This 37-nucleotide RNA from Tautonia plasticadhaerens belongs to the Rfam family "CRISPR RNA direct repeat element". Rfam links the family to the GO term defense response. The family's consensus secondary structure was predicted with WAR. Rfam 15.1 lists 1,291 matches to the family in 43 species. A search with the family's covariance model found it, with a score of 38 bits.
Nucleotides: 037
Base pairs, nucleotide, nucleotide: 006025007024008023009022010021011020012019
Number, partner (000 for none) and nucleotide at each position: 001000g002000u003000c004000u005000u006025c007024c008023g009022c010021g011020a012019c013000c014000u015000c016000a017000g018000g019012g020011u021010c022009g023008c024007g025006g026000c027000c028000u029000c030000a031000u032000u033000g034000a035000a036000g037000c